[Rfam]
RNA: RT-4 RNA
RNA sequence: UACACCGCAGGCGUUUGAAAUAACGCUAACCAGUGGAAAUUGAACCGAUAAAGGCAGGGCUUAGUAAGCGAAAGCCCACCAGCCCUGAGGUGAUAAGA
Numbered sequence: 001u002a003c004a005c006c007g008c009a010g011g012c013g014u015u016u017g018a019a020a021u022a023a024c025g026c027u028a029a030c031c032a033g034u035g036g037a038a039a040u041u042g043a044a045c046c047g048a049u050a051a052a053g054g055c056a057g058g059g060c061u062u063a064g065u066a067a068g069c070g071a072a073a074g075c076c077c078a079c080c081a082g083c084c085c086u087g088a089g090g091u092g093a094u095a096a097g098a
Stems, first nucleotide, its partner, number of pairs: 003035003010027006044091003055087006062081001064079002068075002